[Rfam]
RNA sequence: GCAACAUGCCCUUUACUCGGAUCGUCCGGCACGUUCCUGCCGGUGAAGGAGACAACC
Numbered sequence: 001g002c003a004a005c006a007u008g009c010c011c012u013u014u015a016c017u018c019g020g021a022u023c024g025u026c027c028g029g030c031a032c033g034u035u036c037c038u039g040c041c042g043g044u045g046a047a048g049g050a051g052a053c054a055a056c057c
Base pairs, nucleotide, nucleotide: 009049010048012047013046014045015044026043027042028041029040030039031038